[Rfam]
U5 spliceosomal RNA: a 121-nucleotide RNA from Panicum virgatum. NCBI's taxonomy places the organism under Eukaryota, Euphyllophyta, Liliopsida, Panicinae, Panicum sect. Hiantes. From the family's description: U5 RNA is a component of both types of known spliceosome. Rfam classes the family as a spliceosomal small nuclear RNA.

RNA sequence: AGCUGCGUGGUGAGCACAAAGCGAACUAUUCUUUCGCCUUUUACUAAAGAAUACCGUGUGCUCGCCACGAUAAGCAGCAUACACCAAUUUUUGGAGGGAUCCUUUCUCUUUGUGAGAGGGU
Numbered sequence: 001a002g003c004u005g006c007g008u009g010g011u012g013a014g015c016a017c018a019a020a021g022c023g024a025a026c027u028a029u030u031c032u033u034u035c036g037c038c039u040u041u042u043a044c045u046a047a048a049g050a051a052u053a054c055c056g057u058g059u060g061c062u063c064g065c066c067a068c069g070a071u072a073a074g075c076a077g078c079a080u081a082c083a084c085c086a087a088u089u090u091u092u093g094g095a096g097g098g099a100u101c102c103u104u105u106c107u108c109u110u111u112g113u114g115a116g117a118g119g120g121u
Base pairs, nucleotide, nucleotide: 003077004076005075006074008067009066010065011064012063013062014061015060016059017058018057027053028052029051030050031049032048033047034046095121101120102119103118104117105116